[Rfam]
RNA: Manganese Mn2+ riboswitch aptamer (yybP-ykoY)
RNA sequence: GCCCCGUUCAUUGGGGAGUAGCCACCCUCUGUUGCAGAGGGGUCUUCGUCAACACACUUGGCCAGCAGGCCAUGGCGGAGACAGCGUUUUAGAAAAAACGCCCAGCAAGACCAACGGCAUCAUUGCCUCAACUGUGGCCGGGGGGGCGGUGCGUGCUGUUUUGCGUUUUGCGGCCCUUGGAC
Numbered sequence: 001g002c003c004c005c006g007u008u009c010a011u012u013g014g015g016g017a018g019u020a021g022c023c024a025c026c027c028u029c030u031g032u033u034g035c036a037g038a039g040g041g042g043u044c045u046u047c048g049u050c051a052a053c054a055c056a057c058u059u060g061g062c063c064a065g066c067a068g069g070c071c072a073u074g075g076c077g078g079a080g081a082c083a084g085c086g087u088u089u090u091a092g093a094a095a096a097a098a099c100g101c102c103c104a105g106c107a108a109g110a111c112c113a114a115c116g117g118c119a120u121c122a123u124u125g126c127c128u129c130a131a132c133u134g135u136g137g138c139c140g141g142g143g144g145g146g147c148g149g150u151g152c153g154u155g156c157u158g159u160u161u162u163g164c165g166u167u168u169u170g171c172g173g174c175c176c177u178u179g180g181a182c
Stems, first nucleotide, its partner, number of pairs: 026040003042082010059072005086182004